The family of this 108-nucleotide sequence from Rhododendron williamsianum is "Small nucleolar RNA snoR100". The family's consensus secondary structure was predicted with WAR.
[Rfam]
RNA sequence: GAAUGAAAGAAGCAAGAUAAUGAGCAUAGAAAUUGAAUUGGGGUUUUAGGCCUGCCCUCUCUGAUUCCUUCCGGCUUUGACUUUGGGGCAUGCUUGCACAGCAUAACG
Numbered sequence: 001g002a003a004u005g006a007a008a009g010a011a012g013c014a015a016g017a018u019a020a021u022g023a024g025c026a027u028a029g030a031a032a033u034u035g036a037a038u039u040g041g042g043g044u045u046u047u048a049g050g051c052c053u054g055c056c057c058u059c060u061c062u063g064a065u066u067c068c069u070u071c072c073g074g075c076u077u078u079g080a081c082u083u084u085g086g087g088g089c090a091u092g093c094u095u096g097c098a099c100a101g102c103a104u105a106a107c108g
Base pairs, nucleotide, nucleotide: 012025013024041091043089044088045087050081052079054075055074056073
Rfam classes the family as an H/ACA-box small nucleolar RNA. For this family Rfam cites "Experimental RNomics: identification of 140 candidates for small non-messenger RNAs in the plant Arabidopsis thaliana" (Marker et al., Curr Biol, 2002). A search with the family's covariance model found it, with a score of 59 bits. NCBI's taxonomy places the organism under Eukaryota, Magnoliopsida, Ericoideae, Rhodoreae, Rhododendron.